[Rfam]
RNA sequence: AACUAAAUAAUGCAAAGCUAGGGAAAUCUAGGGGCGCAAAGCUAUAGGGGCUAAGGUUUAAUAGAACUAUGCUAGCCAGUUGCCAAA
Numbered sequence: 001a002a003c004u005a006a007a008u009a010a011u012g013c014a015a016a017g018c019u020a021g022g023g024a025a026a027u028c029u030a031g032g033g034g035c036g037c038a039a040a041g042c043u044a045u046a047g048g049g050g051c052u053a054a055g056g057u058u059u060a061a062u063a064g065a066a067c068u069a070u071g072c073u074a075g076c077c078a079g080u081u082g083c084c085a086a087a
Stems, first nucleotide, its partner, number of pairs: 012037002018031005040081004047077002049073003056067004